[Rfam]
RNA sequence: CAUGAAGACGGUUCUCAUUCUCGUAGUAGGAAGGCGCAUGGGCAAGGCGGUGUAACCGCCGGGCGAGAGCACCCCAUGCGCCAGACAGGCUCCCUUCCGGGGGCCUUUUUUAUUGCCUUCG
Numbered sequence: 001c002a003u004g005a006a007g008a009c010g011g012u013u014c015u016c017a018u019u020c021u022c023g024u025a026g027u028a029g030g031a032a033g034g035c036g037c038a039u040g041g042g043c044a045a046g047g048c049g050g051u052g053u054a055a056c057c058g059c060c061g062g063g064c065g066a067g068a069g070c071a072c073c074c075c076a077u078g079c080g081c082c083a084g085a086c087a088g089g090c091u092c093c094c095u096u097c098c099g100g101g102g103g104c105c106u107u108u109u110u111u112a113u114u115g116c117c118u119u120c121g
Stems, first nucleotide, its partner, number of pairs: 009026001029117002032114001033082010046060005063070002087106008
Dot-bracket structure: ........(................)..((.(((((((((((...(((((.....)))))..((....))..))))))))))....((((((((....)))))))).......).))....

A member of the RNA family "Rhizobiales sRNA Atu_C8" from Mesorhizobium australicum, 121 nucleotides long.
The literature on the family includes a 2012 paper in RNA Biol by Wilms et al., "Deep sequencing uncovers numerous small RNAs on all four replicons of the plant pathogen Agrobacterium tumefaciens".
Taxonomically the source falls in Mesorhizobium (Bacteria, Pseudomonadota, Hyphomicrobiales, Phyllobacteriaceae).